[Rfam]
RNA sequence: CACAUCCUUCGGGGCAGGGUGAAAUUCCCGACCGGCGGUGAUGGCACGUUUGCCUCAGUCCGUGACCCGCGUUGGCGGUGGAUUCGGUGCAACUCCGAAACCGACAGUGAAAGUCUGGAUGGGAGAAGGAUGAA
Numbered sequence: 001c002a003c004a005u006c007c008u009u010c011g012g013g014g015c016a017g018g019g020u021g022a023a024a025u026u027c028c029c030g031a032c033c034g035g036c037g038g039u040g041a042u043g044g045c046a047c048g049u050u051u052g053c054c055u056c057a058g059u060c061c062g063u064g065a066c067c068c069g070c071g072u073u074g075g076c077g078g079u080g081g082a083u084u085c086g087g088u089g090c091a092a093c094u095c096c097g098a099a100a101c102c103g104a105c106a107g108u109g110a111a112a113g114u115c116u117g118g119a120u121g122g123g124a125g126a127a128g129g130a131u132g133a134a
Base pairs, nucleotide, nucleotide: 003132004131005130006129007128008127009126010125017029018028019027031114032113033103034102035063036062037061038060058101059100067078068077083099084098085097086096087095105117106116107115
RNA: FMN riboswitch aptamer (RFN element)
Organism: Thermoactinomyces sp. AS95